[Rfam]
RNA sequence: UAGGGAGGUCAGGGCUCAGAACCCCCCCCUGAGCCCCGGAUAACCUUGGAGGUAGGGGGGAA
Numbered sequence: 001u002a003g004g005g006a007g008g009u010c011a012g013g014g015c016u017c018a019g020a021a022c023c024c025c026c027c028c029c030u031g032a033g034c035c036c037c038g039g040a041u042a043a044c045c046u047u048g049g050a051g052g053u054a055g056g057g058g059g060g061a062a
Stems, first nucleotide, its partner, number of pairs: 008041003012036004016031001019028001022060006

Shown here is a 62-nucleotide RNA from Carlito syrichta, a member of the family "Gag/pol translational readthrough site". It scores 72 bits against the family's covariance model. Rfam classes the family as a cis-regulatory element. Gene Ontology term of the family: viral translational readthrough. The family has 8 seed sequences and 3,368 matches in Rfam 15.1.